[Rfam]
RNA sequence: UAGUCGUAUAUGAGUGUUGGAGGGUACCAAACAAAUCAGCAUCAUAUUAGUGAUUACAAUUUGUUUGGUUUCCUCCAACAUCUCAUCUCCGACUC
Numbered sequence: 001u002a003g004u005c006g007u008a009u010a011u012g013a014g015u016g017u018u019g020g021a022g023g024g025u026a027c028c029a030a031a032c033a034a035a036u037c038a039g040c041a042u043c044a045u046a047u048u049a050g051u052g053a054u055u056a057c058a059a060u061u062u063g064u065u066u067g068g069u070u071u072c073c074u075c076c077a078a079c080a081u082c083u084c085a086u087c088u089c090c091g092a093c094u095c
Stems, first nucleotide, its partner, number of pairs: 004092003008088001011085004016079006023072002026069005032063002
Overview:
Rfam assigns this 95-nucleotide sequence from Prunus dulcis to the family "MIR2275 microRNA precursor family". It scores 66 bits against the family's covariance model. The family's consensus secondary structure was predicted with RNAalifold.